Annotation: Bacterial antisense RNA HPnc0260: a 131-nucleotide RNA from Gilvimarinus sp. DA14. Taxonomically the source falls in Gilvimarinus (Bacteria, Pseudomonadati, Pseudomonadota, Cellvibrionaceae). For this family Rfam cites "The primary transcriptome of the major human pathogen Helicobacter pylori" (Sharma et al., Nature, 2010). The base pairs follow the family's consensus structure, which was predicted with CMfinder.

RNA sequence: AAGAUGGCAAAAUUCAAGCGCUCAGGAGUAAAAAUCUGGACUUUAGGCAAAGUCUAGAUAACAAGCGUAAGACAAUGAAAUAAAAAGAGAAUUGGUACGACCGAGUGGACUCGAACCACCGACCCCCACCA
Numbered sequence: 001a002a003g004a005u006g007g008c009a010a011a012a013u014u015c016a017a018g019c020g021c022u023c024a025g026g027a028g029u030a031a032a033a034a035u036c037u038g039g040a041c042u043u044u045a046g047g048c049a050a051a052g053u054c055u056a057g058a059u060a061a062c063a064a065g066c067g068u069a070a071g072a073c074a075a076u077g078a079a080a081u082a083a084a085a086a087g088a089g090a091a092u093u094g095g096u097a098c099g100a101c102c103g104a105g106u107g108g109a110c111u112c113g114a115a116c117c118a119c120c121g122a123c124c125c126c127c128a129c130c131a
Base pairs, nucleotide, nucleotide: 012035013034014033018029019028021026052059053058093128094127095126102121103120105119106118107117108116